[Rfam]
Record summary: Shown here is a 527-nucleotide sequence from Lasiosphaeria miniovina, a member of the family "RNase MRP". About the family: RNase MRP is an enzymatically active ribonucleoprotein with two distinct roles in eukaryotes. In mitochondria it plays a direct role in the initiation of mitochondrial DNA replication. The family has 66 seed sequences and 3,510 matches in Rfam 15.1. By type it is a ribozyme. NCBI's taxonomy places the organism under Eukaryota, Opisthokonta, Fungi, leotiomyceta, Lasiosphaeria.
RNA sequence: CCCUCGCCCAACAAAUCGCACUUCGAAGCUCACACACGGAAAGAGCAGGGCUCCUCACGGGGCUCUGCCUCUUUCGCAUCCAGCUUUGGGAGAAAGUCCCCGGACACCUGCCCUUUUUUAAUUAAACUUGCAGGAUUGCGGAAACGCGCCGCCAUAGAAGCAUUGCGGCUGAUCUCGGCCGCCUGUUCCUUGACCGUCUCGAUCCAGCCCAGCCCAUCAUACCAAAGUCGGGCUUCUUCCUCCCUCGAGGCAUCCGACAGUCUUUCUUGUUCUCGGGCUAGAGUCCAUAUGGACGAAGAUAUGAGUCCGCGCUCCGGCUGUCUUGGGGCAUGAUUGCCGUUGGAAUGUCUCUGUUGCGUGGAAGUAUCUGAUGGUGGGCCGCCGCUGGGUCGGUCUGGACUGAGAGCGUCAUGGGUUUGGCUCGAGAGGAUUCGUCAAGAUCUCACAGAAAUGCGAUUGCUCGUCGUGUGUCGUCCUCGCGGCGGCACACGCGAAGUUACUCGACGGGGCUUAUUCUUGGUGCGAGG
Numbered sequence: 001c002c003c004u005c006g007c008c009c010a011a012c013a014a015a016u017c018g019c020a021c022u023u024c025g026a027a028g029c030u031c032a033c034a035c036a037c038g039g040a041a042a043g044a045g046c047a048g049g050g051c052u053c054c055u056c057a058c059g060g061g062g063c064u065c066u067g068c069c070u071c072u073u074u075c076g077c078a079u080c081c082a083g084c085u086u087u088g089g090g091a092g093a094a095a096g097u098c099c100c101c102g103g104a105c106a107c108c109u110g111c112c113c114u115u116u117u118u119u120a121a122u123u124a125a126a127c128u129u130g131c132a133g134g135a136u137u138g139c140g141g142a143a144a145c146g147c148g149c150c151g152c153c154a155u156a157g158a159a160g161c162a163u164u165g166c167g168g169c170u171g172a173u174c175u176c177g178g179c180c181g182c183c184u185g186u187u188c189c190u191u192g193a194c195c196g197u198c199u200c201g202a203u204c205c206a207g208c209c210c211a212g213c214c215c216a217u218c219a220u221a222c223c224a225a226a227g228u229c230g231g232g233c234u235u236c237u238u239c240c241u242c243c244c245u246c247g248a249g250g251c252a253u254c255c256g257a258c259a260g261u262c263u264u265u266c267u268u269g270u271u272c273u274c275g276g277g278c279u280a281g282a283g284u285c286c287a288u289a290u291g292g293a294c295g296a297a298g299a300u301a302u303g304a305g306u307c308c309g310c311g312c313u314c315c316g317g318c319u320g321u322c323u324u325g326g327g328g329c330a331u332g333a334u335u336g337c338c339g340u341u342g343g344a345a346u347g348u349c350u351c352u353g354u355u356g357c358g359u360g361g362a363a364g365u366a367u368c369u370g371a372u373g374g375u376g377g378g379c380c381g382c383c384g385c386u387g388g389g390u391c392g393g394u395c396u397g398g399a400c401u402g403a404g405a406g407c408g409u410c411a412u413g414g415g416u417u418u419g420g421c422u423c424g425a426g427a428g429g430a431u432u433c434g435u436c437a438a439g440a441u442c443u444c445a446c447a448g449a450a451a452u453g454c455g456a457u458u459g460c461u462c463g464u465c466g467u468g469u470g471u472c473g474u475c476c477u478c479g480c481g482g483c484g485g486c487a488c489a490c491g492c493g494a495a496g497u498u499a500c501u502c503g504a505c506g507g508g509g510c511u512u513a514u515u516c517u518u519g520g521u522g523c524g525a526g527g
Stems, first nucleotide, its partner, number of pairs: 002527006008520004014458006023090001024088006039075007094512003098509004137148004266429003273425006282418002285415001292410003393400002460496002462493003